[Rfam]
RNA sequence: UGCGAUGAGUCGAGAUAUGUCAGGCGGUAUUUAUACCGUCCCUCUGCGGAGGCUAGUGACAAUUCGAAGUCAGAGGCACGCAUUUCCGACGCAUUCGGAGUGCUUGAUCGUUUAUGUUGUGGAACAU
Dot-bracket structure: .................(((((((((((......))))))((((....))))....))))).............(((((.....(((((.....)))))))))).........(((((....)))))

Rfam assigns this 127-nucleotide sequence from Furfurilactobacillus siliginis to the family "Enterococcus sRNA 68 (Lacto-3 RNA)". It scores 86 bits against the family's covariance model. Pairs were carried over by alignment from the consensus structure, which is taken from published work. The literature on the family includes a 2015 paper in RNA by Innocenti et al., "Whole-genome mapping of 5' RNA ends in bacteria by tagged sequencing: a comprehensive view in Enterococcus faecalis".